[Rfam]
RNA sequence: AUCCGGUGCAGAGCUUAGUCGACUGCCGAACAGGACGUCUGAGCAAUUUGUUCACAGUGGCUAAGUUCUUCACUUGUA
Numbered sequence: 001a002u003c004c005g006g007u008g009c010a011g012a013g014c015u016u017a018g019u020c021g022a023c024u025g026c027c028g029a030a031c032a033g034g035a036c037g038u039c040u041g042a043g044c045a046a047u048u049u050g051u052u053c054a055c056a057g058u059g060g061c062u063a064a065g066u067u068c069u070u071c072a073c074u075u076g077u078a
Base pairs, nucleotide, nucleotide: 011068012067013066014065015064016063017062018061019060020059028053029052030051031050032049